The record is an 86-nucleotide sequence from Bacillus sp. Y1, which matches "c-di-GMP-I riboswitch aptamer" in Rfam. The base pairs follow the family's consensus structure, which is taken from published work. Gene Ontology term of the family: cyclic-di-GMP binding.
[Rfam]
Nucleotides: 086
Base pairs, nucleotide, nucleotide: 012038013037017032018031019030020029021028022027041080042079043078044077048076049075050072051071052070057066058065059064
Number, partner (000 for none) and nucleotide at each position: 001000a002000g003000a004000u005000a006000c007000u008000a009000a010000a011000g012038g013037c014000a015000a016000g017032g018031u019030u020029g021028c022027u023000g024000a025000a026000a027022g028021g029020u030019g031018a032017c033000u034000c035000a036000c037013g038012c039000a040000a041080a042079g043078c044077u045000a046000a047000a048076g049075g050072g051071g052070c053000c054000u055000a056000u057066a058065u059064c060000a061000u062000c063000c064059g065058a066057u067000a068000a069000a070052g071051c072050c073000a074000g075049c076048c077044a078043g079042c080041u081000a082000c083000u084000a085000u086000c